RNA: Small nucleolar RNA SNORA74
RNA sequence: UCCAGCAGUUGUCAGCUGCCCAGGCUGUGUGGUGCCUGUGAUUGUGUUACACUGUUGGAAGAGCAAAGGCUGCUUUAGAAGGGUUGGCUCCAAGCACUGUUUUGGUGUUUGGUGCUGAGUACCUUCAGGCAGUGUAUUGCAUCCCUGAGAGUGGAAUGACUCCUUGUGGAGUUGGUCCUAGUCUAGGUGCGAACAAU
Dot-bracket structure: (((((((((.((..((.(.((((((........))))).).).))...))))))))))).......(.(((((((...((((.(((((..(((.((((.....))))).))..)))))...)))).))))))).).(((((((.........(((.(((((((....))))))).))).......))))))).....
Numbered sequence: 001u002c003c004a005g006c007a008g009u010u011g012u013c014a015g016c017u018g019c020c021c022a023g024g025c026u027g028u029g030u031g032g033u034g035c036c037u038g039u040g041a042u043u044g045u046g047u048u049a050c051a052c053u054g055u056u057g058g059a060a061g062a063g064c065a066a067a068g069g070c071u072g073c074u075u076u077a078g079a080a081g082g083g084u085u086g087g088c089u090c091c092a093a094g095c096a097c098u099g100u101u102u103u104g105g106u107g108u109u110u111g112g113u114g115c116u117g118a119g120u121a122c123c124u125u126c127a128g129g130c131a132g133u134g135u136a137u138u139g140c141a142u143c144c145c146u147g148a149g150a151g152u153g154g155a156a157u158g159a160c161u162c163c164u165u166g167u168g169g170a171g172u173u174g175g176u177c178c179u180a181g182u183c184u185a186g187g188u189g190c191g192a193a194c195a196a197u
Stems, first nucleotide, its partner, number of pairs: 001059009011050002015045002018042001020040001021038005067135001069133007079125004084118005091111002093108001095107004137192007153178003157174007